c-di-AMP riboswitch aptamer (ydaO/yuaA leader): a 133-nucleotide RNA from Acetivibrio clariflavus. The match comes from Rfam's covariance-model search (104 bits). This family represents a conserved RNA structure found upstream of the ydaO and yuaA genes in Bacillus subtilis and related genes in other bacteria. The pairing is the family consensus, mapped onto this sequence. NCBI's taxonomy places the organism under Bacteria, Acetivibrionales, Acetivibrionaceae, Acetivibrio, Acetivibrio clariflavus.
RNA sequence: CAAAGAUAUACGCUGAAUCCAUAAAUGUGGAGCGGGAGAACCAUUUUUGGGGUGAAUCCGAGCAAAGCUUGGUAGGGUUAGCUUUCGACCCGAAUCCGUCAGCUAAUCUCGCAAGCGUUGAAAGAGAAGGUUA
Numbered sequence: 001c002a003a004a005g006a007u008a009u010a011c012g013c014u015g016a017a018u019c020c021a022u023a024a025a026u027g028u029g030g031a032g033c034g035g036g037a038g039a040a041c042c043a044u045u046u047u048u049g050g051g052g053u054g055a056a057u058c059c060g061a062g063c064a065a066a067g068c069u070u071g072g073u074a075g076g077g078u079u080a081g082c083u084u085u086c087g088a089c090c091c092g093a094a095u096c097c098g099u100c101a102g103c104u105a106a107u108c109u110c111g112c113a114a115g116c117g118u119u120g121a122a123a124g125a126g127a128a129g130g131u132u133a
Stems, first nucleotide, its partner, number of pairs: 011117004018031003032112006042049002050097003058072004075091004